This 37-nucleotide RNA sequence from Symbiobacterium thermophilum belongs to the Rfam family "CRISPR RNA direct repeat element". It scores 48 bits against the family's covariance model. The family's consensus secondary structure was predicted with WAR.
RNA sequence: GUAGCACCUGGCCCAAAGGCCGGGUGAGGAUUGAAAC
Numbered sequence: 001g002u003a004g005c006a007c008c009u010g011g012c013c014c015a016a017a018g019g020c021c022g023g024g025u026g027a028g029g030a031u032u033g034a035a036a037c
Stems, first nucleotide, its partner, number of pairs: 005026009
The organism belongs to Symbiobacterium thermophilum, within Bacteria.